[Rfam]
RNA sequence: UGUGCACUUCACUGUAUGUCGCUCUCGAUAAGAGCAUCUGCUAAAUGUCUGUAA
Numbered sequence: 001u002g003u004g005c006a007c008u009u010c011a012c013u014g015u016a017u018g019u020c021g022c023u024c025u026c027g028a029u030a031a032g033a034g035c036a037u038c039u040g041c042u043a044a045a046u047g048u049c050u051g052u053a054a
Stems, first nucleotide, its partner, number of pairs: 013043001014041003021035005
Rfam assigns this 54-nucleotide RNA from Conger conger to the family "UnaL2 LINE 3' element". It scores 56 bits against the family's covariance model. Lineage of the source: Eukaryota > Teleostei > Elopocephala > Congridae > Conger. Rfam classes the family as a cis-regulatory element. Its family is annotated with transposition, RNA-mediated in the Gene Ontology.